[Rfam]
RNA sequence: CCCGUUGCAAAAUCCCAUGACGUAACUAUGUUGAAGGUGUCCUUCGGGACUAUGGACAUAAACGCGCUCGUAAUAAGCGGAUCGGACCCGGGGGCGGUACCCGGCGGCUCCACCAAUCACCCGUCGUUGGAGGGAUACGGGGCCGAAACAGGAUCGACGAACGUCUAAAGGGGUUUGCUUUGUCCCGGUGAGAUACCACCGUUAUCGGUUCGCUAAGCAUAAUUGCCAACGACAAUCGUGCUCCGGUCGCAAUGGCUGCGUAAGCAGUCGGAGUAACCGAAAAUUAAGUCCUGGCCUCUAGCAAGGUCAGGCGGGGUUCGCAGGCACCUGGCAACAGAAGCCUGCACU
Numbered sequence: 001c002c003c004g005u006u007g008c009a010a011a012a013u014c015c016c017a018u019g020a021c022g023u024a025a026c027u028a029u030g031u032u033g034a035a036g037g038u039g040u041c042c043u044u045c046g047g048g049a050c051u052a053u054g055g056a057c058a059u060a061a062a063c064g065c066g067c068u069c070g071u072a073a074u075a076a077g078c079g080g081a082u083c084g085g086a087c088c089c090g091g092g093g094g095c096g097g098u099a100c101c102c103g104g105c106g107g108c109u110c111c112a113c114c115a116a117u118c119a120c121c122c123g124u125c126g127u128u129g130g131a132g133g134g135a136u137a138c139g140g141g142g143c144c145g146a147a148a149c150a151g152g153a154u155c156g157a158c159g160a161a162c163g164u165c166u167a168a169a170g171g172g173g174u175u176u177g178c179u180u181u182g183u184c185c186c187g188g189u190g191a192g193a194u195a196c197c198a199c200c201g202u203u204a205u206c207g208g209u210u211c212g213c214u215a216a217g218c219a220u221a222a223u224u225g226c227c228a229a230c231g232a233c234a235a236u237c238g239u240g241c242u243c244c245g246g247u248c249g250c251a252a253u254g255g256c257u258g259c260g261u262a263a264g265c266a267g268u269c270g271g272a273g274u275a276a277c278c279g280a281a282a283a284u285u286a287a288g289u290c291c292u293g294g295c296c297u298c299u300a301g302c303a304a305g306g307u308c309a310g311g312c313g314g315g316g317u318u319c320g321c322a323g324g325c326a327c328c329u330g331g332c333a334a335c336a337g338a339a340g341c342c343u344g345c346a347c348u
Base pairs, nucleotide, nucleotide: 039050040049041048042047054185055184056183057182058181064178065177066174067173068172069171078163079162082160083159084158088104089103090102091101092100105145106144107143108142109141110140111139186201187200188199189198192211193210195209196208197207314329315328316327317326320345321344322343323342324341325340
Dot-bracket structure: ......................................((((....))))...(((((.....((((((........((..(((...(((((.......)))))(((((((...........................)))))))............))).)).......))))..))..)))))((((..[[.[[[)))).....]]]]]......................................................................................................[[[[..((((((]]]]..........))))))...
Rfam assigns this 348-nucleotide RNA from Roseovarius sp. THAF27 to the family "Alphaproteobacteria transfer-messenger RNA". The match comes from Rfam's covariance-model search (302 bits). The family is grouped with related families in Rfam's "tRNA clan".